The family of this 94-nucleotide RNA is "THF (Tetrahydrofolate) riboswitch aptamer".
Rfam's curators put it in the seed alignment.
Gene Ontology term of the family: tetrahydrofolate metabolic process.
Pairs were carried over by alignment from the consensus structure, which is taken from published work.
RNA sequence: CAGAGUAGGAACAGCGCGUCAAGUGCGUCGGGAUGGGAAGUUGUCCGGCGACGAAGGGGCUGCGCGCCCCGCGGUGCUGUUGCCGCUUCCGCUG
Numbered sequence: 001c002a003g004a005g006u007a008g009g010a011a012c013a014g015c016g017c018g019u020c021a022a023g024u025g026c027g028u029c030g031g032g033a034u035g036g037g038a039a040g041u042u043g044u045c046c047g048g049c050g051a052c053g054a055a056g057g058g059g060c061u062g063c064g065c066g067c068c069c070c071g072c073g074g075u076g077c078u079g080u081u082g083c084c085g086c087u088u089c090c091g092c093u094g
Base pairs, nucleotide, nucleotide: 001094002093003092008084009083010081011080012079013078014077015076016075017073018072019071023052024051026050027049028048029047030046031045032044036090037089038088039087040086056070057069058068059067